[Rfam]
Nucleotides: 058
Base pairs, nucleotide, nucleotide: 006043007042008041009040011038013036016033017032018031024058026056027055028054
Number, partner (000 for none) and nucleotide at each position: 001000u002000g003000a004000u005000g006043u007042c008041c009040c010000c011038c012000a013036c014000c015000c016033a017032c018031c019000c020000c021000g022000a023000a024058g025000a026056u027055c028054c029000c030000a031018g032017g033016u034000a035000a036013g037000c038011g039000a040009g041008g042007g043006a044000a045000c046000g047000g048000u049000c050000a051000g052000c053000a054028g055027g056026a057000c058024c
Notes
The record is a 58-nucleotide sequence from Fukomys damarensis, which matches "Antizyme RNA frameshifting stimulation element" in Rfam. Rfam's curators write: This family represents a structural element which is found in antizyme mRNA and is known to promote frameshifting. For this family Rfam cites "Identification of a new antizyme mRNA +1 frameshifting stimulatory pseudoknot in a subset of diverse invertebrates and its apparent absence in intermediate species" (Ivanov et al., J Mol Biol, 2004). The family's consensus secondary structure is taken from published work. The match comes from Rfam's covariance-model search (54 bits).